[Rfam]
RNA: Ribosomal protein L10 leader
RNA sequence: UAAUAAAGGCUAUUAAUACCAAAGACAGUAACUGGGAAAUUCCCUUAAUUUGUUACCGAGGAUUAAAAUAAACAUUUAUUAAAUAAAUCAAACAUUAAUUUAAAAAAUGUAUUUUUACGUUUCCCUCGGUCUUUGCAUUAAGAACCGAGGGUUUUGUUUUACAAAA
Numbered sequence: 001u002a003a004u005a006a007a008g009g010c011u012a013u014u015a016a017u018a019c020c021a022a023a024g025a026c027a028g029u030a031a032c033u034g035g036g037a038a039a040u041u042c043c044c045u046u047a048a049u050u051u052g053u054u055a056c057c058g059a060g061g062a063u064u065a066a067a068a069u070a071a072a073c074a075u076u077u078a079u080u081a082a083a084u085a086a087a088u089c090a091a092a093c094a095u096u097a098a099u100u101u102a103a104a105a106a107a108u109g110u111a112u113u114u115u116u117a118c119g120u121u122u123c124c125c126u127c128g129g130u131c132u133u134u135g136c137a138u139u140a141a142g143a144a145c146c147g148a149g150g151g152u153u154u155u156g157u158u159u160u161a162c163a164a165a166a
Base pairs, nucleotide, nucleotide: 028056029055030054031053032052034044035043036042123151124150125149126148127147128146129145130144132142133141134140